[Rfam]
RNA sequence: UAUAACUGCAUCUUAAAACCUUAUAUAAUAUCGGGAAUAUGGCUCGAUAGUUUCUACCAGGUAACCUUAAAUUACCUGACUAUAAGGUGAAAUGCAUCCAGA
Dot-bracket structure: .................((((((((...(((((((.......)))))))........(((((((.......)))))))..))))))))..............
Numbered sequence: 001u002a003u004a005a006c007u008g009c010a011u012c013u014u015a016a017a018a019c020c021u022u023a024u025a026u027a028a029u030a031u032c033g034g035g036a037a038u039a040u041g042g043c044u045c046g047a048u049a050g051u052u053u054c055u056a057c058c059a060g061g062u063a064a065c066c067u068u069a070a071a072u073u074a075c076c077u078g079a080c081u082a083u084a085a086g087g088u089g090a091a092a093u094g095c096a097u098c099c100a101g102a
Stems, first nucleotide, its partner, number of pairs: 018088008029049007058078007